[Rfam]
RNA sequence: CUCUUCCGCCGUGUGACUGGCGUUUCCUCCCUAAACUCGGGCCGUCCCUUCGGGGCGGCCCUUCUUUUUUGCGCCG
Numbered sequence: 001c002u003c004u005u006c007c008g009c010c011g012u013g014u015g016a017c018u019g020g021c022g023u024u025u026c027c028u029c030c031c032u033a034a035a036c037u038c039g040g041g042c043c044g045u046c047c048c049u050u051c052g053g054g055g056c057g058g059c060c061c062u063u064c065u066u067u068u069u070u071g072c073g074c075c076g
Stems, first nucleotide, its partner, number of pairs: 001019001039061009

Description: Rfam assigns this 76-nucleotide RNA from Roseomonas indoligenes to the family "Makes More Granules Regulator RNA (mmgR)". About the family: SuhB later renamed mmgR (makes more granules regulator) was a putative non-coding RNA found multiple times in the Agrobacterium tumefaciens genome and related alpha-proteobacteria. The source organism's lineage runs through Bacteria, Pseudomonadati, Alphaproteobacteria, Roseomonadaceae and Roseomonas. Clan: suhB sRNA clan. By type it is a small RNA.